[Rfam]
RNA: Small nucleolar RNA SNORD42
Organism: Cricetulus griseus
RNA sequence: GUGCAUAUGAUGGAAAAAAAAUCGACUCUCCUGAGUCCUAUGAUGCCUUCAAAGGAACCACUGAUGCAC
Number, nucleotide and partner (000 for none) at each position: 001g069002u068003g067004c066005a065006u000007a000008u000009g000010a000011u000012g000013g000014a000015a000016a000017a000018a000019a000020a000021a000022u000023c000024g000025a000026c000027u000028c000029u000030c000031c000032u000033g000034a000035g000036u000037c000038c000039u000040a000041u000042g000043a000044u000045g000046c000047c000048u000049u000050c000051a000052a000053a000054g000055g000056a000057a000058c000059c000060a000061c000062u000063g000064a000065u005066g004067c003068a002069c001